Shown here is a 153-nucleotide RNA from Erwinia billingiae, a member of the family "FMN riboswitch aptamer (RFN element)". Rfam links the family to the GO term FMN binding. Rfam's curators write: The RFN element is a highly conserved domain that is found frequently in the 5'-untranslated regions of prokaryotic mRNAs that encode for flavin mononucleotide (FMN) biosynthesis and transport proteins. The match comes from Rfam's covariance-model search (122 bits). The base pairs follow the family's consensus structure, which is taken from published work.
RNA sequence: GCUUAUUCUCAGGGCGGGGUGUAAUUCCCCACCGGCGGUAAAUCGGCGUCAUGCCGAAAGCCCGCGAGCGCUUCAGACCUCCCGGUUUGAAGGUCAGCAGACCCGGUGUAACUCCGGGGCCGACGGUUAAAGUCCGGAUGGGAGAGAGUAACG
Number, nucleotide and partner (000 for none) at each position: 001g000002c000003u151004u150005a149006u148007u147008c146009u145010c144011a000012g000013g000014g000015c000016g000017g029018g028019g027020u000021g000022u000023a000024a000025u000026u000027c019028c018029c017030c000031a133032c132033c122034g121035g065036c064037g063038g062039u000040a000041a000042a000043u000044c000045g000046g000047c000048g000049u000050c000051a000052u000053g000054c000055c000056g000057a000058a000059a000060g120061c119062c038063c037064g036065c035066g000067a000068g098069c097070g000071c000072u000073u000074c000075a000076g000077a000078c000079c000080u000081c000082c000083c000084g000085g000086u000087u000088u000089g000090a000091a000092g000093g000094u000095c000096a000097g069098c068099a000100g000101a000102c118103c117104c116105g115106g114107u000108g000109u000110a000111a000112c000113u000114c106115c105116g104117g103118g102119g061120c060121c034122g033123a000124c136125g135126g134127u000128u000129a000130a000131a000132g032133u031134c126135c125136g124137g000138a000139u000140g000141g000142g000143a000144g010145a009146g008147a007148g006149u005150a004151a003152c000153g000